[Rfam]
RNA sequence: AACUAGCCCUGAUUGAAACGGCAUCCUUUACUUGCUUUCUUUAAGCAAGUAAAGAUAAAGUGGAAAGCAGGAAUUAGC
Numbered sequence: 001a002a003c004u005a006g007c008c009c010u011g012a013u014u015g016a017a018a019c020g021g022c023a024u025c026c027u028u029u030a031c032u033u034g035c036u037u038u039c040u041u042u043a044a045g046c047a048a049g050u051a052a053a054g055a056u057a058a059a060g061u062g063g064a065a066a067g068c069a070g071g072a073a074u075u076a077g078c
Base pairs, nucleotide, nucleotide: 009070010069011068013066014065018061019060023056024055025054029051030050031049032048033047034046035045036044

The record is a 78-nucleotide RNA, which matches "Flavo-1 RNA" in Rfam.